The family of this 599-nucleotide part of an RNA from Flavihumibacter petaseus is "Bacterial large subunit ribosomal RNA". Taxonomically the source falls in Flavihumibacter petaseus (Bacteria, Bacteroidota, Chitinophagia, Chitinophagaceae).

RNA sequence: UAGUAUCGGUGAAGAUGCCGGUUACCCGUCACGGGACGGAAAGACCCCAUGAACCUUCACUACAACUUUGCAUUGAUUUUGAGCCACAAGUGUGUAGGAUAGUUGGGAGACUAUGAAGCGGUGUCGCCAGGCAUCGUGGAGUCAACGUUGAAAUACCAACCUCUUGUUGCUUAGAACCUAACCCCUUACGGGGGACAUUGCAUGGUGGGUAGUUUGACUGGGGUGGUCGCCUCCUAAAAAGUAACGGAGGCUCGCAAAGGUACCCUCAGUACGGUUGGUAAUCGUACGUAGAGCGCAUUAGUAUAAGGGUGCUUGACUGUGAGACAUACAAGUCGAUCAGGUGCGAAAGCAGGCUAAAGUGAUCCGGUGGUUCUGUAUGGAAGGGCCAUCGCUCAAAGGAUAAAAGGUACUCUGGGGAUAACAGGCUGAUCUCCCCCAAGAGCUCAUAUCGACGGGGAGGUUUGGCACCUCGAUGUCGGUUCGUCACAUCCUGGGGCUGGAGAAGGUCCCAAGGGUUCGGCUGUUCGCCGAUUAAAGUGGCACGUGAACUGGGUUCAGAACGUCGCAAGACAGUUCGGUCCCUAUCUGUGAUGGGCGUU
Numbered sequence: 001u002a003g004u005a006u007c008g009g010u011g012a013a014g015a016u017g018c019c020g021g022u023u024a025c026c027c028g029u030c031a032c033g034g035g036a037c038g039g040a041a042a043g044a045c046c047c048c049a050u051g052a053a054c055c056u057u058c059a060c061u062a063c064a065a066c067u068u069u070g071c072a073u074u075g076a077u078u079u080u081g082a083g084c085c086a087c088a089a090g091u092g093u094g095u096a097g098g099a100u101a102g103u104u105g106g107g108a109g110a111c112u113a114u115g116a117a118g119c120g121g122u123g124u125c126g127c128c129a130g131g132c133a134u135c136g137u138g139g140a141g142u143c144a145a146c147g148u149u150g151a152a153a154u155a156c157c158a159a160c161c162u163c164u165u166g167u168u169g170c171u172u173a174g175a176a177c178c179u180a181a182c183c184c185c186u187u188a189c190g191g192g193g194g195a196c197a198u199u200g201c202a203u204g205g206u207g208g209g210u211a212g213u214u215u216g217a218c219u220g221g222g223g224u225g226g227u228c229g230c231c232u233c234c235u236a237a238a239a240a241g242u243a244a245c246g247g248a249g250g251c252u253c254g255c256a257a258a259g260g261u262a263c264c265c266u267c268a269g270u271a272c273g274g275u276u277g278g279u280a281a282u283c284g285u286a287c288g289u290a291g292a293g294c295g296c297a298u299u300a301g302u303a304u305a306a307g308g309g310u311g312c313u314u315g316a317c318u319g320u321g322a323g324a325c326a327u328a329c330a331a332g333u334c335g336a337u338c339a340g341g342u343g344c345g346a347a348a349g350c351a352g353g354c355u356a357a358a359g360u361g362a363u364c365c366g367g368u369g370g371u372u373c374u375g376u377a378u379g380g381a382a383g384g385g386c387c388a389u390c391g392c393u394c395a396a397a398g399g400a401u402a403a404a405a406g407g408u409a410c411u412c413u414g415g416g417g418a419u420a421a422c423a424g425g426c427u428g429a430u431c432u433c434c435c436c437c438a439a440g441a442g443c444u445c446a447u448a449u450c451g452a453c454g455g456g457g458a459g460g461u462u463u464g465g466c467a468c469c470u471c472g473a474u475g476u477c478g479g480u481u482c483g484u485c486a487c488a489u490c491c492u493g494g495g496g497c498u499g500g501a502g503a504a505g506g507u508c509c510c511a512a513g514g515g516u517u518c519g520g521c522u523g524u525u526c527g528c529c530g531a532u533u534a535a536a537g538u539g540g541c542a543c544g545u546g547a548a549c550u551g552g553g554u555u556c557a558g559a560a561c562g563u564c565g566c567a568a569g570a571c572a573g574u575u576c577g578g579u580c581c582c583u584a585u586c587u588g589u590g591a592u593g594g595g596c597g598u599u
Base pairs, nucleotide, nucleotide: 005022006021007020008019009018025595026594027593028592029591030590031589032588034587035586036585038582039581046416047415048414049413051412052411053408054407055406056405057404059213060212061211062210066205067204069202070201071200072199075178077176078175079174080173081172082171083170084169086167087166088165089164090163092161102160103159104158105157106156109143110142111141118137119136120135121134122133123132124131125130182193183192184191216228217227218226219225229251230250231249232248233247234246252397254354255353260312261311262310263309264308265307266292267291269287270286271285272284273283274282293302294301317340318339319338323334324333325332342351343350344349365391366390367389368388369387370386371385373384374383425466426465427464429463430460431459432458433457434456435455436454440450441449477552478550479549480548481547482544483541484540485539486538487537490515491514493510494509495508496507497506498505517531518530519529520528521527558576559575560574561573562571563570564569